[Rfam]
RNA sequence: GGUCGAUGAUGAUUGGUAAAAGGUCUGAUUGCACUUAACGUCACACUGCCUUCCCUGCCCUCAGCUCCCAGCAGCCCAUUUUUUCCCUCCUGUCACAUUUAAGUCAUGUGUAUGGGGUAAUGGAGCAGCUGAUAAUUUGGGAUUCUGUCAGCGUGUGUUUCUGAGAGUGAGCAGUGCACAGCUGACAAGCAUCCGACAGAACCGGCCGCACAGGAGAUUGAUGAGCGGCAGCCAUGGUUGUGACGGUGCGUGAUCUGAAGUUUUCAAUCUGAGACC
Numbered sequence: 001g002g003u004c005g006a007u008g009a010u011g012a013u014u015g016g017u018a019a020a021a022g023g024u025c026u027g028a029u030u031g032c033a034c035u036u037a038a039c040g041u042c043a044c045a046c047u048g049c050c051u052u053c054c055c056u057g058c059c060c061u062c063a064g065c066u067c068c069c070a071g072c073a074g075c076c077c078a079u080u081u082u083u084u085c086c087c088u089c090c091u092g093u094c095a096c097a098u099u100u101a102a103g104u105c106a107u108g109u110g111u112a113u114g115g116g117g118u119a120a121u122g123g124a125g126c127a128g129c130u131g132a133u134a135a136u137u138u139g140g141g142a143u144u145c146u147g148u149c150a151g152c153g154u155g156u157g158u159u160u161c162u163g164a165g166a167g168u169g170a171g172c173a174g175u176g177c178a179c180a181g182c183u184g185a186c187a188a189g190c191a192u193c194c195g196a197c198a199g200a201a202c203c204g205g206c207c208g209c210a211c212a213g214g215a216g217a218u219u220g221a222u223g224a225g226c227g228g229c230a231g232c233c234a235u236g237g238u239u240g241u242g243a244c245g246g247u248g249c250g251u252g253a254u255c256u257g258a259a260g261u262u263u264u265c266a267a268u269c270u271g272a273g274a275c276c
Stems, first nucleotide, its partner, number of pairs: 001276004038256001040254003046231005052225001065216004069131004074126002089116005095111004139194001141193003145189002154180005160174001161171002
RNA: Small Cajal body specific RNA 6
Organism: Balaenoptera physalus